[Rfam]
Rfam assigns this 64-nucleotide RNA from Corythaixoides concolor to the family "Selenocysteine insertion sequence 1".
The family's consensus secondary structure is taken from published work.
A reference for the family is Walczak et al. (1996), "A novel RNA structural motif in the selenocysteine insertion element of eukaryotic selenoprotein mRNAs", RNA.
Rfam links the family to the GO term selenocysteine incorporation.
The incorporation of selenocysteine into a protein sequence is directed by an in-frame UGA codon (usually a stop codon) within the coding region of the mRNA. Selenoprotein mRNAs contain a conserved secondary structure in the 3' UTR that is required for the distinction of UGA stop from UGA selenocysteine. The selenocysteine insertion sequence (SECIS) is around 60 nt in length and adopts a hairpin structure which is sufficiently well-defined and conserved to act as a computational screen for selenoprotein genes.
The family has 61 seed sequences and 3,793 matches in Rfam 15.1.
RNA sequence: AGCGCUCCAUGACGGGAACAGCCGAAACGUCCGCCGACACCAGGCUGUUUCCCGAUGCCGCGCU
Numbered sequence: 001a002g003c004g005c006u007c008c009a010u011g012a013c014g015g016g017a018a019c020a021g022c023c024g025a026a027a028c029g030u031c032c033g034c035c036g037a038c039a040c041c042a043g044g045c046u047g048u049u050u051c052c053c054g055a056u057g058c059c060g061c062g063c064u
Stems, first nucleotide, its partner, number of pairs: 001064005014052010029038003